[Rfam]
RNA sequence: UUUAACAGAUAAGCUUUGUGCUUGAAUUAUGUUUCUUACUUAUGUAUAAGACGAGCAGAAAGCUUGUUGGUUAGAAG
Numbered sequence: 001u002u003u004a005a006c007a008g009a010u011a012a013g014c015u016u017u018g019u020g021c022u023u024g025a026a027u028u029a030u031g032u033u034u035c036u037u038a039c040u041u042a043u044g045u046a047u048a049a050g051a052c053g054a055g056c057a058g059a060a061a062g063c064u065u066g067u068u069g070g071u072u073a074g075a076a077g
Stems, first nucleotide, its partner, number of pairs: 003073004008068002011065007020056001023053002027049006

Shown here is a 77-nucleotide RNA from Microcaecilia unicolor, a member of the family "mir-208 microRNA precursor family".